[Rfam]
RNA sequence: UUUGGGUAAUGUAUAAACAACAGGAAUGUUAUGUACAGUAUACAGAUAAUUCUAUAUGUAACGUUUUUGUUGUCCUAAAUUACUCUAC
Numbered sequence: 001u002u003u004g005g006g007u008a009a010u011g012u013a014u015a016a017a018c019a020a021c022a023g024g025a026a027u028g029u030u031a032u033g034u035a036c037a038g039u040a041u042a043c044a045g046a047u048a049a050u051u052c053u054a055u056a057u058g059u060a061a062c063g064u065u066u067u068u069g070u071u072g073u074c075c076u077a078a079a080u081u082a083c084u085c086u087a088c
Stems, first nucleotide, its partner, number of pairs: 002087001004085007017073019037053002
mir-3327 microRNA precursor family: an 88-nucleotide RNA from Bombyx mori. The source organism's lineage runs through Eukaryota, Eumetabola, Amphiesmenoptera, Bombycidae and Bombyx. Pairs were carried over by alignment from the consensus structure, which was predicted with RNAalifold. The sequence is in the family's curated seed alignment. The family has 2 seed sequences and 26 matches in Rfam 15.1.